Description
Bacterial antisense RNA HPnc0260: a 129-nucleotide RNA sequence from Campylobacter corcagiensis. The family's consensus secondary structure was predicted with CMfinder.

RNA sequence: AUGACGAUAUCUUUGAUAAACUAAUGAUGCAAAAAAGUGUCUCACAAAAUUUAAUCAACAAAGUAAGUAGAAGUUAAAAUCAUAUAAAAAUGGUGGCCCCGAAUGGACUUGAACCAUCGACCACCACCA
Numbered sequence: 001a002u003g004a005c006g007a008u009a010u011c012u013u014u015g016a017u018a019a020a021c022u023a024a025u026g027a028u029g030c031a032a033a034a035a036a037g038u039g040u041c042u043c044a045c046a047a048a049a050u051u052u053a054a055u056c057a058a059c060a061a062a063g064u065a066a067g068u069a070g071a072a073g074u075u076a077a078a079a080u081c082a083u084a085u086a087a088a089a090a091u092g093g094u095g096g097c098c099c100c101g102a103a104u105g106g107a108c109u110u111g112a113a114c115c116a117u118c119g120a121c122c123a124c125c126a127c128c129a
Stems, first nucleotide, its partner, number of pairs: 008033001010031001014027001016025002091126006100119002103117004